[Rfam]
RNA sequence: GAACAUGGCACUCGUUCUUGUAGUGGUAGGAAGGCGCAUGGGCAGGAUGGCGUAGCCAUCCGGCGAAAGCACCCAUGCGCGGUAAGCAGGCUCCUGACGGGGCCUUUUUUAUUGCCCGGAA
Numbered sequence: 001g002a003a004c005a006u007g008g009c010a011c012u013c014g015u016u017c018u019u020g021u022a023g024u025g026g027u028a029g030g031a032a033g034g035c036g037c038a039u040g041g042g043c044a045g046g047a048u049g050g051c052g053u054a055g056c057c058a059u060c061c062g063g064c065g066a067a068a069g070c071a072c073c074c075a076u077g078c079g080c081g082g083u084a085a086g087c088a089g090g091c092u093c094c095u096g097a098c099g100g101g102g103c104c105u106u107u108u109u110u111a112u113u114g115c116c117c118g119g120a121a
Stems, first nucleotide, its partner, number of pairs: 009026001029117002034080009045061006063070002086106001088105007
The record is a 121-nucleotide sequence from Rhizobium sp. JAB6, which matches "Rhizobiales sRNA Atu_C8" in Rfam. The match comes from Rfam's covariance-model search (116 bits). A reference for the family is Wilms et al. (2012), "Deep sequencing uncovers numerous small RNAs on all four replicons of the plant pathogen Agrobacterium tumefaciens", RNA Biol.